[Rfam]
RNA sequence: UGACCAGGGGGCCGGGUUGUUCCGCGUCGACAGGAGCGGCAUGACCUAGGGGUACAGGGGGUACCUCCGCACAGGCGGGCCGGGUCAGGCGAAAC
Number, nucleotide and partner (000 for none) at each position: 001u087002g086003a085004c084005c083006a000007g000008g000009g000010g081011g080012c079013c078014g047015g046016g045017u044018u043019g000020u041021u000022c039023c038024g037025c036026g000027u034028c000029g000030a000031c000032a000033g000034g027035a000036g025037c024038g023039g022040c000041a020042u000043g018044a017045c016046c015047u014048a000049g067050g066051g065052g064053u063054a062055c061056a000057g000058g000059g000060g000061g055062u054063a053064c052065c051066u050067c049068c000069g000070c000071a000072c000073a000074g000075g000076c000077g000078g013079g012080c011081c010082g000083g005084g004085u003086c002087a001088g000089g000090c000091g000092a000093a000094a000095c000
Rfam assigns this 95-nucleotide sequence from Pseudomonas sp. FeS53a to the family "ivy-DE RNA". The match comes from Rfam's covariance-model search (81 bits). The family's RNA type in Rfam is cis-regulatory element.